[Rfam]
RNA sequence: CUUGGAUAUGGAGACAUGUACCCCAAGACUUGGUCAGGAAUGCUGGUAGGAGCCCUAUGUGCUCUUGCCGGAGUGCUGACCAUCGCCAUGCCCGUGCCCGUCAUCGUAAACAAU
Numbered sequence: 001c002u003u004g005g006a007u008a009u010g011g012a013g014a015c016a017u018g019u020a021c022c023c024c025a026a027g028a029c030u031u032g033g034u035c036a037g038g039a040a041u042g043c044u045g046g047u048a049g050g051a052g053c054c055c056u057a058u059g060u061g062c063u064c065u066u067g068c069c070g071g072a073g074u075g076c077u078g079a080c081c082a083u084c085g086c087c088a089u090g091c092c093c094g095u096g097c098c099c100g101u102c103a104u105c106g107u108a109a110a111c112a113a114u
Stems, first nucleotide, its partner, number of pairs: 002113001004111001007108005013102003018097004037077002040074001049063002
Dot-bracket structure: .(.(..(((((.(((..((((...............((.(........((...........))..........).))................))))..))).)))))..).).